[Rfam]
RNA sequence: GCAUGUUUGCCAACACUCUGGUGCCUAAUCUUUAUUUCGAGCUAUAUGCUGCUUAAUAAUGCUAUAUUGGGUUCCUAUUUUGGUGCAAACUAGAAAAAUUUAAGCUGACUACUCACCAUUGUACUCUACCAAUAUGGGUACAAUCGGUCCAUUUCUUUAGCUUUCAU
Numbered sequence: 001g002c003a004u005g006u007u008u009g010c011c012a013a014c015a016c017u018c019u020g021g022u023g024c025c026u027a028a029u030c031u032u033u034a035u036u037u038c039g040a041g042c043u044a045u046a047u048g049c050u051g052c053u054u055a056a057u058a059a060u061g062c063u064a065u066a067u068u069g070g071g072u073u074c075c076u077a078u079u080u081u082g083g084u085g086c087a088a089a090c091u092a093g094a095a096a097a098a099u100u101u102a103a104g105c106u107g108a109c110u111a112c113u114c115a116c117c118a119u120u121g122u123a124c125u126c127u128a129c130c131a132a133u134a135u136g137g138g139u140a141c142a143a144u145c146g147g148u149c150c151a152u153u154u155c156u157u158u159a160g161c162u163u164u165c166a167u
Base pairs, nucleotide, nucleotide: 007088008087009086020075021074023072024071026069027068028067029066031046103162104161105160106159116147117146118144119143121141122140123139124138125137126136
A member of the RNA family "Small nucleolar RNA snR80" from Debaryomyces hansenii, 167 nucleotides long. The family is grouped with related families in Rfam's "SNORA28 clan". Rfam classes the family as an H/ACA-box small nucleolar RNA. NCBI's taxonomy places the organism under Eukaryota, Fungi, Saccharomycotina, Debaryomycetaceae, Debaryomyces.